A member of the RNA family "MIR6146 microRNA precursor family" from Nicotiana attenuata, 75 nucleotides long.
Its family is annotated with miRNA-mediated post-transcriptional gene silencing and RISC complex in the Gene Ontology.
A search with the family's covariance model found it, with a score of 74 bits.
The source organism's lineage runs through Eukaryota, Solanales, Solanaceae, Nicotianeae and Nicotiana.

[Rfam]
RNA sequence: CAACGAGAUUUGUUCAAUGAAAUACUUAUCGGACAUCAAGCAUCCAGAUAAGUGUUCAUUGGACGAAGGUCGCUA
Numbered sequence: 001c002a003a004c005g006a007g008a009u010u011u012g013u014u015c016a017a018u019g020a021a022a023u024a025c026u027u028a029u030c031g032g033a034c035a036u037c038a039a040g041c042a043u044c045c046a047g048a049u050a051a052g053u054g055u056u057c058a059u060u061g062g063a064c065g066a067a068g069g070u071c072g073c074u075a
Base pairs, nucleotide, nucleotide: 002074004072005071006070009067010066011065012064013063014062015061016060017059018058019057020056021055023054024053025052026051027050028049029048030047032044033043
Dot-bracket structure: .(.(((..(((((((((((((.((((((((.((.........))..)))))))))))))))))))))..))).).